[Rfam]
RNA sequence: GUUGGGUAUGGAGACAUGGUUCCGACUACAAUUGGUGGCAAAAUUGUUGGAUCUCUAUGUGCCAUUGCUGGUGUGCUGACCAUUGCCUUGCCUGUGCCUGUAAUAGUUUCAAAC
Numbered sequence: 001g002u003u004g005g006g007u008a009u010g011g012a013g014a015c016a017u018g019g020u021u022c023c024g025a026c027u028a029c030a031a032u033u034g035g036u037g038g039c040a041a042a043a044u045u046g047u048u049g050g051a052u053c054u055c056u057a058u059g060u061g062c063c064a065u066u067g068c069u070g071g072u073g074u075g076c077u078g079a080c081c082a083u084u085g086c087c088u089u090g091c092c093u094g095u096g097c098c099u100g101u102a103a104u105a106g107u108u109u110c111a112a113a114c
Stems, first nucleotide, its partner, number of pairs: 001114002005110001008107002011104001014101003018097001021094001037077004049063002
Notes
The family of this 114-nucleotide RNA from Danionella cerebrum is "Potassium channel RNA editing signal". By type it is a cis-regulatory element. This family represents a group of sequences related to the human potassium channel Kv1.1 hairpin element which directs the efficient modification of an adenosine to inosine by an adenosine deaminase acting on RNA (ADAR). The ADAR modification causes an isoleucine/valine recoding event which lies in the ion-conducting pore of the potassium channel. It is thought that this editing event targets the process of fast inactivation and allows a more rapid recovery from inactivation at negative potentials.